A member of the RNA family "Bacterial RNase P class A" from Myroides odoratus, 316 nucleotides long. By type it is a ribozyme. Lineage of the source: Bacteria > Pseudomonadati > Bacteroidota > Flavobacteriia > Myroides. It scores 186 bits against the family's covariance model.
[Rfam]
RNA sequence: UAUGCAGAUCGCCUUAUCGCUGGUUUAGCAAUAAACGAGAGGAAAGUCUGGACACCAUAGAGCGGUAUAGUGGGUAACACCCAUCCGCGGAGCAAUCCGUGAGGACAAGUGCAACAGAAAGGAUGUACAGGUAAUGCUGUAGUGAAAUCAGGUAAACUCUAUACGGUGAAAUGCCAUGUAUAUUUAGCGUUCGAGGGCUGCUCGCCCGAUGCUUUAGGGGUAGGCAGAUGGAGCCAUUGAGUAAUUGAUGGCCUGGAUAAAUGAUAAGGGUGCAUUUCGGUGCAUACAGAAUCCGGCUUAUAGAUCUGCAUUUAUU
Numbered sequence: 001u002a003u004g005c006a007g008a009u010c011g012c013c014u015u016a017u018c019g020c021u022g023g024u025u026u027a028g029c030a031a032u033a034a035a036c037g038a039g040a041g042g043a044a045a046g047u048c049u050g051g052a053c054a055c056c057a058u059a060g061a062g063c064g065g066u067a068u069a070g071u072g073g074g075u076a077a078c079a080c081c082c083a084u085c086c087g088c089g090g091a092g093c094a095a096u097c098c099g100u101g102a103g104g105a106c107a108a109g110u111g112c113a114a115c116a117g118a119a120a121g122g123a124u125g126u127a128c129a130g131g132u133a134a135u136g137c138u139g140u141a142g143u144g145a146a147a148u149c150a151g152g153u154a155a156a157c158u159c160u161a162u163a164c165g166g167u168g169a170a171a172u173g174c175c176a177u178g179u180a181u182a183u184u185u186a187g188c189g190u191u192c193g194a195g196g197g198c199u200g201c202u203c204g205c206c207c208g209a210u211g212c213u214u215u216a217g218g219g220g221u222a223g224g225c226a227g228a229u230g231g232a233g234c235c236a237u238u239g240a241g242u243a244a245u246u247g248a249u250g251g252c253c254u255g256g257a258u259a260a261a262u263g264a265u266a267a268g269g270g271u272g273c274a275u276u277u278c279g280g281u282g283c284a285u286a287c288a289g290a291a292u293c294c295g296g297c298u299u300a301u302a303g304a305u306c307u308g309c310a311u312u313u314a315u316u
Stems, first nucleotide, its partner, number of pairs: 002311009011301001012269007020039002023036005044299003048296005053168004060203004065164005070084005085103001086101006104159002109157002111153002172226004183216001186213002195207004233252008